[Rfam]
The family of this 119-nucleotide RNA from Tersicoccus phoenicis is "Actinobacteria sRNA Ms_IGR-7". The organism belongs to Tersicoccus, within Bacteria. The pairing is the family consensus, mapped onto this sequence. It is annotated as a small RNA.
RNA sequence: CGAGAUGCCCUUCUUGAAUGGGUGAUACGUGCCUUAGAUAAGUCGUAUCUUCCCAGGUCAGAAGGGCAUUCUCAUGCUCCCACACCGACCCCGCAACACCAAUUGGUCGGUGGAUCGAG
Number, nucleotide and partner (000 for none) at each position: 001c000002g072003a000004g070005a069006u068007g067008c066009c065010c064011u063012u062013c061014u000015u060016g059017a058018a000019u055020g054021g053022g052023u000024g049025a048026u047027a000028c045029g000030u000031g043032c042033c000034u000035u000036a000037g000038a000039u000040a000041a000042g032043u031044c000045g028046u000047a026048u025049c024050u000051u000052c022053c021054c020055a019056g000057g000058u017059c016060a015061g013062a012063a011064g010065g009066g008067c007068a006069u005070u004071c000072u002073c000074a000075u000076g000077c000078u000079c000080c000081c000082a000083c000084a000085c000086c000087g000088a000089c000090c000091c000092c000093g000094c000095a000096a000097c000098a000099c000100c117101a000102a115103u114104u113105g000106g111107u000108c000109g000110g000111u106112g000113g104114a103115u102116c000117g100118a000119g000